Shown here is a 261-nucleotide part of an RNA from Leptolyngbya ectocarpi, a member of the family "Bacterial large subunit ribosomal RNA". Pairs were carried over by alignment from the consensus structure, which is taken from published work. For this family Rfam cites "Crystal structure of the ribosome at 5.5 A resolution" (Yusupov et al., Science, 2001).

[Rfam]
RNA sequence: AGAGCAUUGAGAGGAGUCUUCCUUAGUACGAGAGGACCGGGAAGAACGCACCUCUGGUGUACCUGUUAUCGUGCCAACGGUAAACGCAGGGUAGCCAAGUGCGGAGCGGAUAACCGCUGAAAGCAUCUAAGUGGGAAGCCCACCUCAAGAUGAGUGCUCUCAUGGAGUUAAUCCAGUAAGGUCACGGGAAGACGACCCGUUGAUAGGUUCUAAGUGGAAGUGUGGCAACAUGCGAAGCUGAGGAAUACUAACAGACCGAGG
Numbered sequence: 001a002g003a004g005c006a007u008u009g010a011g012a013g014g015a016g017u018c019u020u021c022c023u024u025a026g027u028a029c030g031a032g033a034g035g036a037c038c039g040g041g042a043a044g045a046a047c048g049c050a051c052c053u054c055u056g057g058u059g060u061a062c063c064u065g066u067u068a069u070c071g072u073g074c075c076a077a078c079g080g081u082a083a084a085c086g087c088a089g090g091g092u093a094g095c096c097a098a099g100u101g102c103g104g105a106g107c108g109g110a111u112a113a114c115c116g117c118u119g120a121a122a123g124c125a126u127c128u129a130a131g132u133g134g135g136a137a138g139c140c141c142a143c144c145u146c147a148a149g150a151u152g153a154g155u156g157c158u159c160u161c162a163u164g165g166a167g168u169u170a171a172u173c174c175a176g177u178a179a180g181g182u183c184a185c186g187g188g189a190a191g192a193c194g195a196c197c198c199g200u201u202g203a204u205a206g207g208u209u210c211u212a213a214g215u216g217g218a219a220g221u222g223u224g225g226c227a228a229c230a231u232g233c234g235a236a237g238c239u240g241a242g243g244a245a246u247a248c249u250a251a252c253a254g255a256c257c258g259a260g261g
Stems, first nucleotide, its partner, number of pairs: 001160008011146004017045007047103005055097003062090005067082006108140002114134005163175003177259001180257004184200005204250003207246005213239002220233005
Dot-bracket structure: ((((((((..((((..(((((((...............))))))).(((((...(((....(((((((((((....))))))...)))))....))).)))))....((....(((((...........)))))....))..))))......))))))))..(((.......))).(..(((((((((.......)))))...((((((((.((.....(((((....)))))....))..))))).)))...)))).)..